[Rfam]
RNA sequence: GUGCAAUGAUGAAAACACCUUUUCAGCUGACCUUUUAAUUGUGAAGGUUUCUACACUUGAAUUGAGCACA
Numbered sequence: 001g002u003g004c005a006a007u008g009a010u011g012a013a014a015a016c017a018c019c020u021u022u023u024c025a026g027c028u029g030a031c032c033u034u035u036u037a038a039u040u041g042u043g044a045a046g047g048u049u050u051c052u053a054c055a056c057u058u059g060a061a062u063u064g065a066g067c068a069c070a
Stems, first nucleotide, its partner, number of pairs: 001069004013035003019029001
The record is a 70-nucleotide sequence from Sarcophilus harrisii, which matches "Small nucleolar RNA U2-30" in Rfam.
The match comes from Rfam's covariance-model search (61 bits).
Its family is annotated with nucleolus and RNA processing in the Gene Ontology.
The base pairs follow the family's consensus structure, which is taken from published work.
It is annotated as a C/D-box small nucleolar RNA.
The literature on the family includes a 2004 paper in Curr Biol by Tycowski et al., "Guide RNAs with 5' Caps and Novel Box C/D snoRNA-like Domains for Modification of snRNAs in Metazoa".
NCBI's taxonomy places the organism under Eukaryota, Dipnotetrapodomorpha, Tetrapoda, Dasyuridae, Sarcophilus.